Overview
The record is a 58-nucleotide RNA sequence from Vagococcus lutrae, which matches "Fluoride riboswitch aptamer (crcB RNA motif)" in Rfam. Rfam links the family to the GO terms positive regulation of gene expression and response to fluoride. A reference for the family is Baker et al. (2012), "Widespread genetic switches and toxicity resistance proteins for fluoride", Science. The source organism's lineage runs through Bacteria, Bacillati, Bacillota, Enterococcaceae and Vagococcus lutrae.
[Rfam]
RNA sequence: UGUAUUAUAGGUCAUGUGGUUGACCUUAACCGCGAAAGCUAAUAACUCCUACAAAAAG
Numbered sequence: 001u002g003u004a005u006u007a008u009a010g011g012u013c014a015u016g017u018g019g020u021u022g023a024c025c026u027u028a029a030c031c032g033c034g035a036a037a038g039c040u041a042a043u044a045a046c047u048c049c050u051a052c053a054a055a056a057a058g
Base pairs, nucleotide, nucleotide: 010025011024012023013022016049018047019046020045021044032039033038